Shown here is an 87-nucleotide sequence from Cnephaeus nilssonii, a member of the family "mir-9195 microRNA precursor family". Rfam 15.1 lists 438 matches to the family in 7 species. Gene Ontology terms of the family: RISC complex and miRNA-mediated post-transcriptional gene silencing. NCBI's taxonomy places the organism under Eukaryota, Eumetazoa, Chiroptera, Vespertilionidae, Cnephaeus. The base pairs follow the family's consensus structure, which was predicted with RNAalifold.
[Rfam]
RNA sequence: AGUGGCCCUCUGUGGCCACGGUGGAACACUUGCCUCGUCACUGCGGUGACAAAGCAGGCAUUCCACCAGGCCGCUCAUGCUGCCCGC
Numbered sequence: 001a002g003u004g005g006c007c008c009u010c011u012g013u014g015g016c017c018a019c020g021g022u023g024g025a026a027c028a029c030u031u032g033c034c035u036c037g038u039c040a041c042u043g044c045g046g047u048g049a050c051a052a053a054g055c056a057g058g059c060a061u062u063c064c065a066c067c068a069g070g071c072c073g074c075u076c077a078u079g080c081u082g083c084c085c086g087c
Stems, first nucleotide, its partner, number of pairs: 004084003012074006020067007029058005037050005